Rfam assigns this 426-nucleotide RNA sequence from [Pantoea] beijingensis to the family "cspA thermoregulator". The source organism's lineage runs through Bacteria, Pseudomonadati, Pseudomonadota, Enterobacterales and Erwinia. A reference for the family is Giuliodori et al. (2010), "The cspA mRNA is a thermosensor that modulates translation of the cold-shock protein CspA", Mol Cell.
RNA sequence: GUCGGUUUGUUAAGCAGAGCCGAAUAUGCGAGCAGUUUUAGUAAAGCAGUCUUCAGUUCAAGCGUUAUCUUAGAUAUCUCUUCUUCGUGACUCCUUCCUGAGUGCCUCAUAAAUUCUGUGGACAAACCAUUUCGCCCUGUGUGGCUUGUAAUUGUAUGAAGGAUAGACAAAUGUCUAACAAAAUGACUGGUUUAGUAAAAUGGUUCAACGCUGAGAAAGGCUUCGGUUUUAUUUCUCCAACUGAUGGCAGCAAAGAUGUGUUCGUACACUUCUCUGCAAUCCAGAACCAGGGUUUUAAAACUCUGGAAGAAGGUCAGAAAGUUGAAUUCUCUAUCGAGAAUGGCCAGAAAGGCCCGGCAGCAGCUAACGUUACUGCGAUCUAAGCGAUAUUCUCACAACCUGAUGCCUGGCAUCAGGUUGUGAACC
Numbered sequence: 001g002u003c004g005g006u007u008u009g010u011u012a013a014g015c016a017g018a019g020c021c022g023a024a025u026a027u028g029c030g031a032g033c034a035g036u037u038u039u040a041g042u043a044a045a046g047c048a049g050u051c052u053u054c055a056g057u058u059c060a061a062g063c064g065u066u067a068u069c070u071u072a073g074a075u076a077u078c079u080c081u082u083c084u085u086c087g088u089g090a091c092u093c094c095u096u097c098c099u100g101a102g103u104g105c106c107u108c109a110u111a112a113a114u115u116c117u118g119u120g121g122a123c124a125a126a127c128c129a130u131u132u133c134g135c136c137c138u139g140u141g142u143g144g145c146u147u148g149u150a151a152u153u154g155u156a157u158g159a160a161g162g163a164u165a166g167a168c169a170a171a172u173g174u175c176u177a178a179c180a181a182a183a184u185g186a187c188u189g190g191u192u193u194a195g196u197a198a199a200a201u202g203g204u205u206c207a208a209c210g211c212u213g214a215g216a217a218a219g220g221c222u223u224c225g226g227u228u229u230u231a232u233u234u235c236u237c238c239a240a241c242u243g244a245u246g247g248c249a250g251c252a253a254a255g256a257u258g259u260g261u262u263c264g265u266a267c268a269c270u271u272c273u274c275u276g277c278a279a280u281c282c283a284g285a286a287c288c289a290g291g292g293u294u295u296u297a298a299a300a301c302u303c304u305g306g307a308a309g310a311a312g313g314u315c316a317g318a319a320a321g322u323u324g325a326a327u328u329c330u331c332u333a334u335c336g337a338g339a340a341u342g343g344c345c346a347g348a349a350a351g352g353c354c355c356g357g358c359a360g361c362a363g364c365u366a367a368c369g370u371u372a373c374u375g376c377g378a379u380c381u382a383a384g385c386g387a388u389a390u391u392c393u394c395a396c397a398a399c400c401u402g403a404u405g406c407c408u409g410g411c412a413u414c415a416g417g418u419u420g421u422g423a424a425c426c
Base pairs, nucleotide, nucleotide: 004021005020006018007017008016009015027239028238031236032235034233045230046229049228051226052225053220054219057218058217065214066213067212069210071208073206074205076204078203079202083173085171088169089168096162097161099159101157104123106121107120134145135144136143175190176189177188242336243335244334245333246332247331255263256262268322269321270320271319273318274317275316276315277313280307281306282305283304284303285302341356342355343354357376358375359374360373365372379387380386393423394422395421396420397419398418399417400416401415402414403413404412